[Rfam]
The family of this 88-nucleotide RNA sequence from Hanseniaspora valbyensis is "tRNA". Transfer RNA (tRNA) molecules are approximately 80 nucleotides in length. Their secondary structure includes four short double-helical elements and three loops (D, anti-codon, and T loops). Further hydrogen bonds mediate the characteristic L-shaped molecular structure. tRNAs have two regions of fundamental functional importance: the anti-codon, which is responsible for specific mRNA codon recognition, and the 3' end, to which the tRNAs corresponding amino acid is attached (by aminoacyl-tRNA synthetases). tRNAs cope with the degeneracy of the genetic code in two manners: having more than one tRNA (with a specific anti-codon) for a particular amino acid; and 'wobble' base-pairing, i.e. permitting non-standard base-pairing at the 3rd anti-codon position. Lineage of the source: Eukaryota > saccharomyceta > Saccharomycodales > Hanseniaspora > Hanseniaspora valbyensis.
RNA sequence: CUCCUGGUAGCUUAGUUGGUUUAAAGCACAAGACUGUAAUUUGUAACAAGUUAUCUUGGGAUCGGGUGUUCGACUCACCCCCGGGAGA
Numbered sequence: 001c002u003c004c005u006g007g008u009a010g011c012u013u014a015g016u017u018g019g020u021u022u023a024a025a026g027c028a029c030a031a032g033a034c035u036g037u038a039a040u041u042u043g044u045a046a047c048a049a050g051u052u053a054u055c056u057u058g059g060g061a062u063c064g065g066g067u068g069u070u071c072g073a074c075u076c077a078c079c080c081c082c083g084g085g086a087g088a
Stems, first nucleotide, its partner, number of pairs: 001087007010027004029058005064080005